[Rfam]
RNA sequence: CCGUCGAUAGCUCAGUUGGUAGAGCGGAGGACUGUAGACGUUCUGAUAUCCUUAGGUCGCUGAUUCGAAUCCGGCUCGACGGA
Numbered sequence: 001c002c003g004u005c006g007a008u009a010g011c012u013c014a015g016u017u018g019g020u021a022g023a024g025c026g027g028a029g030g031a032c033u034g035u036a037g038a039c040g041u042u043c044u045g046a047u048a049u050c051c052u053u054a055g056g057u058c059g060c061u062g063a064u065u066c067g068a069a070u071c072c073g074g075c076u077c078g079a080c081g082g083a
Stems, first nucleotide, its partner, number of pairs: 001082007010025004027053005059075004
Dot-bracket structure: (((((((..((((........)))).(((((.................))))).....((((.........))))))))))).
Shown here is an 83-nucleotide RNA from Auanema sp. JU1783, a member of the family "tRNA". The organism belongs to Auanema, within Eukaryota.